[Rfam]
RNA sequence: AAAACAACUUCAUACAAUCCUUAUAUAUCUAUGGAAAUAUGGUCCAUACGUUUCUACCUGGCAGCCGUAAAGUGCCGGACUAUAAGGAAAGUUAGAGUAUUA
Numbered sequence: 001a002a003a004a005c006a007a008c009u010u011c012a013u014a015c016a017a018u019c020c021u022u023a024u025a026u027a028u029c030u031a032u033g034g035a036a037a038u039a040u041g042g043u044c045c046a047u048a049c050g051u052u053u054c055u056a057c058c059u060g061g062c063a064g065c066c067g068u069a070a071a072g073u074g075c076c077g078g079a080c081u082a083u084a085a086g087g088a089a090a091g092u093u094a095g096a097g098u099a100u101u102a
Stems, first nucleotide, its partner, number of pairs: 018088008030048006058078006

Overview:
A member of the RNA family "Purine riboswitch aptamer" from Ureibacillus yapensis, 102 nucleotides long. NCBI's taxonomy places the organism under Bacteria, Bacillota, Bacilli, Caryophanales, Ureibacillus. Pairs were carried over by alignment from the consensus structure, which is taken from published work.